The record is an 86-nucleotide sequence from Thermanaeromonas toyohensis, which matches "Group II catalytic intron D1-D4-1" in Rfam. Lineage of the source: Bacteria > Bacillati > Neomoorellales > Thermanaeromonas > Thermanaeromonas toyohensis. The family has 237 seed sequences and 2,508 matches in Rfam 15.1. From the family's description: Group II introns are found in rRNA, tRNA and mRNA of organelles in fungi, plants and protists, and also in mRNA in bacteria.
[Rfam]
RNA sequence: UAACCUGCACUGGAAGGUGCGGUUGAACUGGCAGGAGUCAGCAGAGGUCAUAGUACCUCUCUCAGACGUCAGAGGGAGGGAAGGAC
Numbered sequence: 001u002a003a004c005c006u007g008c009a010c011u012g013g014a015a016g017g018u019g020c021g022g023u024u025g026a027a028c029u030g031g032c033a034g035g036a037g038u039c040a041g042c043a044g045a046g047g048u049c050a051u052a053g054u055a056c057c058u059c060u061c062u063c064a065g066a067c068g069u070c071a072g073a074g075g076g077a078g079g080g081a082a083g084g085a086c
Base pairs, nucleotide, nucleotide: 001025002024005022006021007020008019009018010017011016038045039044047086048085049084056079057078058077059076060075061074062073063072